[Rfam]
RNA: Molybdenum/Tungsten riboswitch aptamer (Moco RNA motif)
RNA sequence: AUAUUUUGUUAUCUCCGAGCCCAUCCGCCUACCAGGAACAUUCCCACGGCGGCCGGCCGACGGGUGUUGCUGGAAACGGCAGCGCCUCCCCUCUGGAAAGGAGAUUCCGGGCCACGUGC
Numbered sequence: 001a002u003a004u005u006u007u008g009u010u011a012u013c014u015c016c017g018a019g020c021c022c023a024u025c026c027g028c029c030u031a032c033c034a035g036g037a038a039c040a041u042u043c044c045c046a047c048g049g050c051g052g053c054c055g056g057c058c059g060a061c062g063g064g065u066g067u068u069g070c071u072g073g074a075a076a077c078g079g080c081a082g083c084g085c086c087u088c089c090c091c092u093c094u095g096g097a098a099a100g101g102a103g104a105u106u107c108c109g110g111g112c113c114a115c116g117u118g119c
Stems, first nucleotide, its partner, number of pairs: 006110001011105006019057003024052002027050003035044003062087011088096002